[Rfam]
RNA sequence: AUGCUAUGAUGAUCUCCAUCUUGGUUUCGCUUAUCACUGAAUUCCUGUGAUGACACAUUCUCUUGGCUGUCUGAGCAU
Dot-bracket structure: ((((......................................................................))))
Numbered sequence: 001a002u003g004c005u006a007u008g009a010u011g012a013u014c015u016c017c018a019u020c021u022u023g024g025u026u027u028c029g030c031u032u033a034u035c036a037c038u039g040a041a042u043u044c045c046u047g048u049g050a051u052g053a054c055a056c057a058u059u060c061u062c063u064u065g066g067c068u069g070u071c072u073g074a075g076c077a078u
Stems, first nucleotide, its partner, number of pairs: 001078004

Shown here is a 78-nucleotide sequence from Salvator merianae, a member of the family "Small nucleolar RNA SNORD53/SNORD92". The family is grouped with related families in Rfam's "SNORD52 clan". The match comes from Rfam's covariance-model search (84 bits). The family has 37 seed sequences and 2,250 matches in Rfam 15.1. For this family Rfam cites "Site-specific ribose methylation of preribosomal RNA: a novel function for small nucleolar RNAs" (Kiss-Laszlo et al., Cell, 1996).